[Rfam]
RNA: Bacillaceae-1 RNA
RNA sequence: ACGUCCUGUCGGUCGGCUAAAAGCGCCAACGUCCUGUUGGCAACGCCGACACUAGCACCUCGUGUGCG
Numbered sequence: 001a002c003g004u005c006c007u008g009u010c011g012g013u014c015g016g017c018u019a020a021a022a023g024c025g026c027c028a029a030c031g032u033c034c035u036g037u038u039g040g041c042a043a044c045g046c047c048g049a050c051a052c053u054a055g056c057a058c059c060u061c062g063u064g065u066g067c068g
Stems, first nucleotide, its partner, number of pairs: 012050006026040005055067004